[Rfam]
RNA sequence: GGAUGUGUGAGGAGUGCUGACCGCCUCUUCAGGGUCGAAACAAGGACAGACUCCUGAACGCGUUCCAUU
Numbered sequence: 001g002g003a004u005g006u007g008u009g010a011g012g013a014g015u016g017c018u019g020a021c022c023g024c025c026u027c028u029u030c031a032g033g034g035u036c037g038a039a040a041c042a043a044g045g046a047c048a049g050a051c052u053c054c055u056g057a058a059c060g061c062g063u064u065c066c067a068u069u
Stems, first nucleotide, its partner, number of pairs: 020064001022062003029057005034051003
Dot-bracket structure: ...................(.(((....((((((((............))).)))))..))).).....
This 69-nucleotide sequence from Synechococcus sp. KORDI-100 belongs to the Rfam family "Cyano-1 RNA". The family's RNA type in Rfam is small RNA. Lineage of the source: Bacteria > Cyanobacteriota > Cyanophyceae > Synechococcales > Synechococcus.